[Rfam]
Shown here is a 154-nucleotide RNA sequence from Dickeya dadantii, a member of the family "sroC RNA". It is annotated as a small RNA. Gene Ontology terms of the family: regulation of RNA stability and RNA binding. The literature on the family includes a 2003 paper in Nucleic Acids Res by Vogel et al., "RNomics in Escherichia coli detects new sRNA species and indicates parallel transcriptional output in bacteria". About the family: This family consists of a number of bacterial sroC RNA genes of around 160 bases in length. sroC is found in several Enterobacterial species. It base-pairs with GcvB. This interaction triggers the degradation of GcvB by RNase E, alleviating the GcvB-mediated mRNA repression of other amino acid-related transport and metabolic genes. The base pairs follow the family's consensus structure, which was predicted with PFOLD.
RNA sequence: AUUAAUAAUGACAAUAAAGGGCAGUAAUUCUGCCUUCCGAUUGCUGAUUCGUGGCAAGACAGACAGGCGCAGGGCGGUCGUUCCCCAUCCUGCGAAUCCACAAGCCACUCAUCAAUCUUCGGGGUAGCGAACGCUACCCCUUUUUUACCGGAGU
Numbered sequence: 001a002u003u004a005a006u007a008a009u010g011a012c013a014a015u016a017a018a019g020g021g022c023a024g025u026a027a028u029u030c031u032g033c034c035u036u037c038c039g040a041u042u043g044c045u046g047a048u049u050c051g052u053g054g055c056a057a058g059a060c061a062g063a064c065a066g067g068c069g070c071a072g073g074g075c076g077g078u079c080g081u082u083c084c085c086c087a088u089c090c091u092g093c094g095a096a097u098c099c100a101c102a103a104g105c106c107a108c109u110c111a112u113c114a115a116u117c118u119u120c121g122g123g124g125u126a127g128c129g130a131a132c133g134c135u136a137c138c139c140c141u142u143u144u145u146u147a148c149c150g151g152a153g154u
Base pairs, nucleotide, nucleotide: 014154019035020034021033022032023031024030036123037122038121039120040116041115042114043113046110047109058098060094069093070092071091072090073089074088076086077085